[Rfam]
RNA: Small nucleolar RNA snR80
RNA sequence: UGCCCUUUGCCAACACUCUGGCCCUUACCCUCCUUCCUUCGAGGAUAGGUGUGAUCUAUGGUAUAGGCCUAUUUUGGUGCAAAGAAGAUGAAAUCCGUUGGCCCGUUACUCACCGCAGCAUUCUAUCCUUCUGGGGUGAACGCGGCGGUCCAUAUUUGAGGCCUACAU
Numbered sequence: 001u002g003c004c005c006u007u008u009g010c011c012a013a014c015a016c017u018c019u020g021g022c023c024c025u026u027a028c029c030c031u032c033c034u035u036c037c038u039u040c041g042a043g044g045a046u047a048g049g050u051g052u053g054a055u056c057u058a059u060g061g062u063a064u065a066g067g068c069c070u071a072u073u074u075u076g077g078u079g080c081a082a083a084g085a086a087g088a089u090g091a092a093a094u095c096c097g098u099u100g101g102c103c104c105g106u107u108a109c110u111c112a113c114c115g116c117a118g119c120a121u122u123c124u125a126u127c128c129u130u131c132u133g134g135g136g137u138g139a140a141c142g143c144g145g146c147g148g149u150c151c152a153u154a155u156u157u158g159a160g161g162c163c164u165a166c167a168u
Stems, first nucleotide, its partner, number of pairs: 007082003020069004026063004031045004100163004113148004118143002121140003